A member of the RNA family "Small nucleolar RNA SNORA25" from Chrysochloris asiatica, 130 nucleotides long. By type it is an H/ACA-box small nucleolar RNA. ACA25 is a member of the H/ACA class of snoRNA that guide the sites of modification of uridines to pseudouridines.
RNA sequence: GGGUCAUUUCAAAGAGAGCUUUUGGAGCUGUGAGACCAAUAGUUCUUAACGCUGUGACCAAAAAUUAAAAUUCCCCUUGGAAUGCUAUAGUCACUCAGUAGUGCUGUGCUUUUUCCUGAGGGAGAUACAA
Numbered sequence: 001g002g003g004u005c006a007u008u009u010c011a012a013a014g015a016g017a018g019c020u021u022u023u024g025g026a027g028c029u030g031u032g033a034g035a036c037c038a039a040u041a042g043u044u045c046u047u048a049a050c051g052c053u054g055u056g057a058c059c060a061a062a063a064a065u066u067a068a069a070a071u072u073c074c075c076c077u078u079g080g081a082a083u084g085c086u087a088u089a090g091u092c093a094c095u096c097a098g099u100a101g102u103g104c105u106g107u108g109c110u111u112u113u114u115c116c117u118g119a120g121g122g123a124g125a126u127a128c129a130a
Base pairs, nucleotide, nucleotide: 002059003058004057005056006055007054014047015046016045017044018043019042020041023039027036072123073122074121075120079116080115081114082113087107088106089105090104092103093102094101095100